This 126-nucleotide RNA from Streptococcus minor belongs to the Rfam family "Ribosomal protein L20 leader". NCBI's taxonomy places the organism under Bacteria, Bacillati, Bacilli, Streptococcaceae, Streptococcus. This family is a putative r-protein leader autoregulatory structure found in B. subtilis and other low-GC Gram-positive bacteria. The family's consensus secondary structure was predicted with CMfinder.
[Rfam]
RNA sequence: UGAGAAAAGCAGAAGUGAGAGCUUCUCGCCUUGCGACUUCGGUUGUCUGGCCCUACAUGUCAAAUUUCCUUUAGGGAAGAUUAUGUGUGCGGGCUUGAUUUAUCAGGUCCGCCUUUGUUUUUCUCA
Numbered sequence: 001u002g003a004g005a006a007a008a009g010c011a012g013a014a015g016u017g018a019g020a021g022c023u024u025c026u027c028g029c030c031u032u033g034c035g036a037c038u039u040c041g042g043u044u045g046u047c048u049g050g051c052c053c054u055a056c057a058u059g060u061c062a063a064a065u066u067u068c069c070u071u072u073a074g075g076g077a078a079g080a081u082u083a084u085g086u087g088u089g090c091g092g093g094c095u096u097g098a099u100u101u102a103u104c105a106g107g108u109c110c111g112c113c114u115u116u117g118u119u120u121u122u123c124u125c126a
Stems, first nucleotide, its partner, number of pairs: 011026006028051003033046005089112009